[Rfam]
The record is a 105-nucleotide RNA sequence from Desulfonatronum sp. SC1, which matches "c-di-GMP-I riboswitch aptamer" in Rfam.
GEMM was predicted in a large-scale screen for bacterial structured RNA regulatory elements. Genes associated with GEMM are involved in a diverse array of functions, including chemotaxis regulation, signal transduction, secretion and chitin.

RNA sequence: GUCCGCCAAGGGCAAACCAUCCGAAAGGGUGGGACGCAAAGCCGACGGCCUACGUUUCGCCCGCUAUGACCAAAGCGGGCGGGAUAGGGCGGCAGGGUUGCCGGA
Numbered sequence: 001g002u003c004c005g006c007c008a009a010g011g012g013c014a015a016a017c018c019a020u021c022c023g024a025a026a027g028g029g030u031g032g033g034a035c036g037c038a039a040a041g042c043c044g045a046c047g048g049c050c051u052a053c054g055u056u057u058c059g060c061c062c063g064c065u066a067u068g069a070c071c072a073a074a075g076c077g078g079g080c081g082g083g084a085u086a087g088g089g090c091g092g093c094a095g096g097g098u099u100g101c102c103g104g105a
Base pairs, nucleotide, nucleotide: 012037013036017032018031019030020029021028022027040099041098042097043096047093048090049089050088055084056083057082058081059080060079061078062077063076064075065074